Shown here is a 130-nucleotide sequence from Carlito syrichta, a member of the family "Small nucleolar RNA SNORA9". Its family is annotated with RNA processing and nucleolus in the Gene Ontology. A search with the family's covariance model found it, with a score of 92 bits. NCBI's taxonomy places the organism under Eukaryota, Metazoa, Euarchontoglires, Haplorrhini, Carlito. Pairs were carried over by alignment from the consensus structure, which was predicted with PFOLD.
RNA sequence: UAGCAAGCCUUCAUCAUGCUUGGGUCUCCUGUGACUUUCUACAUUCCUACAGUGUUUACCAGAAUGGUUUUGAAACAGUUUGAGGUCUUGUUCUGCUCCAUUCACAAGGUAAUAGGAAUGUCAGACAAUG
Numbered sequence: 001u002a003g004c005a006a007g008c009c010u011u012c013a014u015c016a017u018g019c020u021u022g023g024g025u026c027u028c029c030u031g032u033g034a035c036u037u038u039c040u041a042c043a044u045u046c047c048u049a050c051a052g053u054g055u056u057u058a059c060c061a062g063a064a065u066g067g068u069u070u071u072g073a074a075a076c077a078g079u080u081u082g083a084g085g086u087c088u089u090g091u092u093c094u095g096c097u098c099c100a101u102u103c104a105c106a107a108g109g110u111a112a113u114a115g116g117a118a119u120g121u122c123a124g125a126c127a128a129u130g
Stems, first nucleotide, its partner, number of pairs: 003059001005057004017043002022037005071123003075119001086109006095103001

The family has 36 seed sequences and 1,202 matches in Rfam 15.1. ACA9 is a member of the H/ACA class of snoRNA that guide the sites of modification of uridines to pseudouridines.